Notes
A member of the RNA family "ybhL leader" from Brucella anthropi, 79 nucleotides long. Gene Ontology term of the family: regulation of gene expression. It is annotated as a cis-regulatory leader. The literature on the family includes a 2005 paper in Genome Biol by Corbino et al., "Evidence for a second class of S-adenosylmethionine riboswitches and other regulatory RNA motifs in alpha-proteobacteria". It is one of the family's seed sequences. This family is a putative regulatory RNA structure that is found upstream of an uncharacterized membrane protein in alpha-proteobacteria.
RNA sequence: CAGGCAUGCUGGGGUCCCGCCAGCGGCGCCUGGCGGCGGCUCGACCUUUUGAGCGCCCCCGACACCGGACGGGACAUGG
Number, nucleotide and partner (000 for none) at each position: 001c000002a000003g000004g000005c000006a000007u000008g000009c000010u000011g000012g077013g000014g075015u074016c073017c072018c071019g070020c000021c000022a000023g000024c067025g066026g065027c000028g000029c000030c000031u061032g060033g059034c000035g000036g000037c053038g000039g000040c000041u000042c000043g000044a000045c000046c000047u000048u000049u000050u000051g000052a000053g037054c000055g000056c000057c000058c000059c033060c032061g031062a000063c000064a000065c026066c025067g024068g000069a000070c019071g018072g017073g016074a015075c014076a000077u012078g000079g000